Shown here is an 87-nucleotide RNA from Paraclostridium benzoelyticum, a member of the family "pan motif".
Taxonomically the source falls in Paraclostridium (Bacteria, Bacillati, Bacillota, Peptostreptococcales).
The family's consensus secondary structure is taken from published work.
The match comes from Rfam's covariance-model search (48 bits).

RNA sequence: UGGGUGGUAUUUUAAUUAAACUGCACCAAUUGGAUAUUAAAAAUUUUAUUAUAGGAAGCUCAUAUCUUUUUAGAAUGAGACUGAUUA
Numbered sequence: 001u002g003g004g005u006g007g008u009a010u011u012u013u014a015a016u017u018a019a020a021c022u023g024c025a026c027c028a029a030u031u032g033g034a035u036a037u038u039a040a041a042a043a044u045u046u047u048a049u050u051a052u053a054g055g056a057a058g059c060u061c062a063u064a065u066c067u068u069u070u071u072a073g074a075a076u077g078a079g080a081c082u083g084a085u086u087a
Stems, first nucleotide, its partner, number of pairs: 001028003004024005010019002057082002059079005065074003